Shown here is a 77-nucleotide RNA sequence from Silurus meridionalis, a member of the family "bZIP non canonical Hac1/Xbp1 intron". A search with the family's covariance model found it, with a score of 45 bits. Rfam describes the family as follows. bZIP intron RNA is a non-canonical intron that was first reported in HAC1 gene in yeast and XBP1 gene in Metazoa.
RNA sequence: UGCUGAACGGGUCUUCUGAGUCCGCAGCACUCAGGCUACGUGUGCCUCCGCAGCAGGUGCAGGCCCAGCUAUCGUCA
Numbered sequence: 001u002g003c004u005g006a007a008c009g010g011g012u013c014u015u016c017u018g019a020g021u022c023c024g025c026a027g028c029a030c031u032c033a034g035g036c037u038a039c040g041u042g043u044g045c046c047u048c049c050g051c052a053g054c055a056g057g058u059g060c061a062g063g064c065c066c067a068g069c070u071a072u073c074g075u076c077a
Stems, first nucleotide, its partner, number of pairs: 004077003009066005016034006043059005